[Rfam]
RNA sequence: UCCGUCGCGAGGCGGAAUCUGAAGGAAGCCGGAGACAAACGCACGGGUCAAGGUACACGAACUGGAUUUGAGGCAGGAUUAGUUGGAUGAGUUGCCAGAACACAACGAAAUCCAAAGCCGCCAAGGGCUCAUCCUGUAAACUCCAGUGAUCGCGGGCGGAAAGAUGACGCU
Numbered sequence: 001u002c003c004g005u006c007g008c009g010a011g012g013c014g015g016a017a018u019c020u021g022a023a024g025g026a027a028g029c030c031g032g033a034g035a036c037a038a039a040c041g042c043a044c045g046g047g048u049c050a051a052g053g054u055a056c057a058c059g060a061a062c063u064g065g066a067u068u069u070g071a072g073g074c075a076g077g078a079u080u081a082g083u084u085g086g087a088u089g090a091g092u093u094g095c096c097a098g099a100a101c102a103c104a105a106c107g108a109a110a111u112c113c114a115a116a117g118c119c120g121c122c123a124a125g126g127g128c129u130c131a132u133c134c135u136g137u138a139a140a141c142u143c144c145a146g147u148g149a150u151c152g153c154g155g156g157c158g159g160a161a162a163g164a165u166g167a168c169g170c171u
Base pairs, nucleotide, nucleotide: 001016002015003014004013005012006011028171030169031168036163040158041157042156044154045153046151047150048149049148050147062146063145064144065143066142067140073137074136075135077133078132079131081129082128083127085113086112087111088110091106092105093104094103
Shown here is a 171-nucleotide sequence from Novibacillus thermophilus, a member of the family "Group II catalytic intron D1-D4-3". Lineage of the source: Bacteria > Bacillati > Bacillota > Caryophanales > Novibacillus. Rfam links the family to the GO term Group II intron splicing. A search with the family's covariance model found it, with a score of 123 bits.